[Rfam]
Glycine riboswitch aptamer: a 97-nucleotide sequence from Microbacterium caowuchunii. The match comes from Rfam's covariance-model search (64 bits).
RNA sequence: ACGAUCGUUGCGGGAGAGCCUCGGCAGUUUCUGUGCCGGGCACCGAAGGAGCAAGCCUCCCCGCCAAUCUCUCAGGUACGCGUACCGCCGCGGUCGG
Numbered sequence: 001a002c003g004a005u006c007g008u009u010g011c012g013g014g015a016g017a018g019c020c021u022c023g024g025c026a027g028u029u030u031c032u033g034u035g036c037c038g039g040g041c042a043c044c045g046a047a048g049g050a051g052c053a054a055g056c057c058u059c060c061c062c063g064c065c066a067a068u069c070u071c072u073c074a075g076g077u078a079c080g081c082g083u084a085c086c087g088c089c090g091c092g093g094u095c096g097g
Stems, first nucleotide, its partner, number of pairs: 006092003010088004020040007042077003045073002049071003055064002